Nucleotides: 153
Base pairs, nucleotide, nucleotide: 002019003018004017005016006015007014028068029067030066031065032064033059034058035057036056037055039053040052042051043050044049084099085098087096088095100124101123103121108115109114128146129145132142
Number, partner (000 for none) and nucleotide at each position: 001000c002019a003018u004017c005016u006015u007014a008000u009000c010000c011000g012000u013000u014007u015006g016005a017004g018003a019002u020000g021000u022000a023000c024000c025000u026000a027000c028068c029067g030066c031065g032064g033059c034058a035057u036056g037055c038000g039053c040052c041000c042051c043050c044049g045000g046000u047000a048000a049044c050043g051042g052040g053039g054000g055037g056036u057035g058034u059033g060000a061000a062000g063000c064032c065031c066030g067029c068028g069000g070000g071000a072000c073000a074000a075000c076000g077000a078000g079000g080000a081000g082000a083000a084099g085098a086000g087096c088095a089000g090000a091000a092000c093000c094000c095088u096087g097000a098085u099084c100124u101123g102000c103121u104000c105000c106000a107000u108115c109114c110000g111000c112000c113000a114109g115108g116000u117000a118000a119000a120000c121103g122000a123101c124100g125000c126000g127000c128146g129145a130000a131000a132142a133000a134000a135000u136000a137000a138000c139000a140000c141000a142132u143000a144000c145129u146128u147000a148000g149000a150000a151000g152000a153000g